[Rfam]
This 87-nucleotide sequence from Alkaliphilus sp. B6464 belongs to the Rfam family "c-di-GMP-I riboswitch aptamer". The source organism's lineage runs through Bacteria, Bacillati, Bacillota, Clostridia and Alkaliphilus. Rfam describes the family as follows. GEMM was predicted in a large-scale screen for bacterial structured RNA regulatory elements. The base pairs follow the family's consensus structure, which is taken from published work. A search with the family's covariance model found it, with a score of 86 bits.
RNA sequence: ACUUAUAAAUGGCAAACUUACUGAAAGGUAAGGACGCAAAGCCAUGGGUCUAAGGAAAAUUUUUUCUAUGAUUGCCAGGUUGCUAAG
Numbered sequence: 001a002c003u004u005a006u007a008a009a010u011g012g013c014a015a016a017c018u019u020a021c022u023g024a025a026a027g028g029u030a031a032g033g034a035c036g037c038a039a040a041g042c043c044a045u046g047g048g049u050c051u052a053a054g055g056a057a058a059a060u061u062u063u064u065u066c067u068a069u070g071a072u073u074g075c076c077a078g079g080u081u082g083c084u085a086a087g
Base pairs, nucleotide, nucleotide: 012037013036017032018031019030020029021028022027040081041080042079043078045077046076047075048072049071050070055066056065057064058063